[Rfam]
RNA sequence: UUGACCAGCAACUUUUACUCAAGACCUUUUGAAUUUUAUAAUUCUACAAAUCCCCCCCAAAUCAACAAAAAUGAGUCCCUGCAACUGCAACUGCUGCUCCGGAGACUGCAACUCCUGCAGCUGUUCUUCCUGCUCUGUGAGUUACGCCUUUUC
Numbered sequence: 001u002u003g004a005c006c007a008g009c010a011a012c013u014u015u016u017a018c019u020c021a022a023g024a025c026c027u028u029u030u031g032a033a034u035u036u037u038a039u040a041a042u043u044c045u046a047c048a049a050a051u052c053c054c055c056c057c058c059a060a061a062u063c064a065a066c067a068a069a070a071a072u073g074a075g076u077c078c079c080u081g082c083a084a085c086u087g088c089a090a091c092u093g094c095u096g097c098u099c100c101g102g103a104g105a106c107u108g109c110a111a112c113u114c115c116u117g118c119a120g121c122u123g124u125u126c127u128u129c130c131u132g133c134u135c136u137g138u139g140a141g142u143u144a145c146g147c148c149u150u151u152u153c
Stems, first nucleotide, its partner, number of pairs: 080104001082102001087097003108133003117124002
A member of the RNA family "A. fumigatus sRNA Afu_254" from Polytolypa hystricis, 153 nucleotides long. Taxonomically the source falls in Polytolypa hystricis (Eukaryota, Ascomycota, saccharomyceta, Eurotiomycetes). It scores 74 bits against the family's covariance model. It is annotated as a small RNA.